Rfam assigns this 75-nucleotide sequence from Anisodus acutangulus to the family "Plastid-ycf2 5UTR RNA". A search with the family's covariance model found it, with a score of 74 bits. For this family Rfam cites "Retrograde signaling in plants: A critical review focusing on the GUN pathway and beyond" (Richter et al., Plant Commun, 2023). Rfam 15.1 lists 3,521 matches to the family in 417 species. Rfam describes the family as follows. Plastid ycf2 is a non-coding RNA (ncRNA) recognised in plastids. It was found in the prime untranslated region (5UTR) of ycf2 genes, it presents a tRNA-like motif which suggests it can be involved in mRNA maturation, particularly involved in defining the precise 5' end of the transcript.
[Rfam]
RNA sequence: GUACAUCUAGUAGAAAUUGAAUCGAUGAAUUCAUCAAUUAUGAGUUGGGCGCUAUAACCAUUCAGCCAUAUAUGC
Numbered sequence: 001g002u003a004c005a006u007c008u009a010g011u012a013g014a015a016a017u018u019g020a021a022u023c024g025a026u027g028a029a030u031u032c033a034u035c036a037a038u039u040a041u042g043a044g045u046u047g048g049g050c051g052c053u054a055u056a057a058c059c060a061u062u063c064a065g066c067c068a069u070a071u072a073u074g075c
Stems, first nucleotide, its partner, number of pairs: 004074003008070001010026002013023002040069003044066006051059001